[Rfam]
Small nucleolar RNA snoR26: a 91-nucleotide RNA sequence from Morus notabilis. It scores 92 bits against the family's covariance model. Its family is annotated with RNA processing and nucleolus in the Gene Ontology. A reference for the family is Brown et al. (2001), "Multiple snoRNA gene clusters from Arabidopsis", RNA. Pairs were carried over by alignment from the consensus structure, which was predicted with WAR.
RNA sequence: UGAGCAUCGCUGAUGAAUAUCCUAUUAUUGUUAUCCUUGCACUUUGAUUGCUAGUGAAGAAACCCAUGGGGAAAAUUUUUCUGAGAUGCUC
Numbered sequence: 001u002g003a004g005c006a007u008c009g010c011u012g013a014u015g016a017a018u019a020u021c022c023u024a025u026u027a028u029u030g031u032u033a034u035c036c037u038u039g040c041a042c043u044u045u046g047a048u049u050g051c052u053a054g055u056g057a058a059g060a061a062a063c064c065c066a067u068g069g070g071g072a073a074a075a076u077u078u079u080u081c082u083g084a085g086a087u088g089c090u091c
Base pairs, nucleotide, nucleotide: 002091003090004089005088006087007086008085
Dot-bracket structure: .(((((((............................................................................)))))))